[Rfam]
A member of the RNA family "c-di-GMP-I riboswitch aptamer" from Aquibacillus salsiterrae, 83 nucleotides long. The base pairs follow the family's consensus structure, which is taken from published work. It scores 59 bits against the family's covariance model. The organism belongs to Aquibacillus, within Bacteria. Its family is annotated with cyclic-di-GMP binding in the Gene Ontology.
RNA sequence: UCUAGUAGUGGGUACAGCCAAAGAAAUUUGGUGUCACAAAGCAAUAGGGGCUAAGGGUUUUCCUAGGCUAGCCUGCUGCCGUU
Numbered sequence: 001u002c003u004a005g006u007a008g009u010g011g012g013u014a015c016a017g018c019c020a021a022a023g024a025a026a027u028u029u030g031g032u033g034u035c036a037c038a039a040a041g042c043a044a045u046a047g048g049g050g051c052u053a054a055g056g057g058u059u060u061u062c063c064u065a066g067g068c069u070a071g072c073c074u075g076c077u078g079c080c081g082u083u
Stems, first nucleotide, its partner, number of pairs: 012037002017032006040077004047073002049069003056063002